[Rfam]
RNA sequence: UGGAUGAAGACAGAGAAGUGGAGCUUGACACUAGCAUAUAUCAUUGUAGUGAAUAUGUACCUCCAGCGAGGGAGAGCAAGAGCUUGAGUGUAACAACAACAAGCUACAGAAGUGGUGCAAGAAACAGGACAAGCUACUCGCCAAGUGCUUCAAAACUAUCAAGUUCCUAAUAGAUAAGUUGAGCUGCUCCUCUUCCACUACAGUUAUCCCA
Numbered sequence: 001u002g003g004a005u006g007a008a009g010a011c012a013g014a015g016a017a018g019u020g021g022a023g024c025u026u027g028a029c030a031c032u033a034g035c036a037u038a039u040a041u042c043a044u045u046g047u048a049g050u051g052a053a054u055a056u057g058u059a060c061c062u063c064c065a066g067c068g069a070g071g072g073a074g075a076g077c078a079a080g081a082g083c084u085u086g087a088g089u090g091u092a093a094c095a096a097c098a099a100c101a102a103g104c105u106a107c108a109g110a111a112g113u114g115g116u117g118c119a120a121g122a123a124a125c126a127g128g129a130c131a132a133g134c135u136a137c138u139c140g141c142c143a144a145g146u147g148c149u150u151c152a153a154a155a156c157u158a159u160c161a162a163g164u165u166c167c168u169a170a171u172a173g174a175u176a177a178g179u180u181g182a183g184c185u186g187c188u189c190c191u192c193u194u195c196c197a198c199u200a201c202a203g204u205u206a207u208c209c210c211a
Base pairs, nucleotide, nucleotide: 001211002210003209013198015195016194017193018192020190021189022188023187024186
Shown here is a 211-nucleotide RNA sequence from Arabidopsis thaliana, a member of the family "MIR854 microRNA precursor family".
Gene Ontology terms of the family: RISC complex and miRNA-mediated post-transcriptional gene silencing.
The match comes from Rfam's covariance-model search (178 bits).
A reference for the family is Arteaga-Vazquez et al. (2006), "A family of microRNAs present in plants and animals", Plant Cell.